[Rfam]
RNA: Small Cajal body specific RNA 24
RNA sequence: AAAACAUUUUUAAAAACCUCAUGUUGUUCUCAAGGUGAAGAUAACUUUUUAUAAAUGUCCUAGAGAAAUAUAGUAGCUUUCUGUUUAACAUUUUUACAAGAAGAGAGGGUGGAUCUUUCCACUACUGACAUUU
Dot-bracket structure: ...((((((.(.........(..((.(((.......))).).)..)....).))))))............((((((...............((((........))))..............))))))......